Rfam assigns this 97-nucleotide RNA sequence from Flavobacteria bacterium BAL38 to the family "Flavo-1 RNA". The organism belongs to Flavobacteriales, within Bacteria.
RNA sequence: CCCUAGCCCAGAUAGAAGAGAAAAUCCUUUUUAUACCUGACAGGUUUUCGAAAACCUGCAAGGCAUAAAAAGAUUGAAACGGAUAGCUGGAUAAAGC
Numbered sequence: 001c002c003c004u005a006g007c008c009c010a011g012a013u014a015g016a017a018g019a020g021a022a023a024a025u026c027c028u029u030u031u032u033a034u035a036c037c038u039g040a041c042a043g044g045u046u047u048u049c050g051a052a053a054a055c056c057u058g059c060a061a062g063g064c065a066u067a068a069a070a071a072g073a074u075u076g077a078a079a080c081g082g083a084u085a086g087c088u089g090g091a092u093a094a095a096g097c
Stems, first nucleotide, its partner, number of pairs: 009089003013085002018080001023075004029070005036063003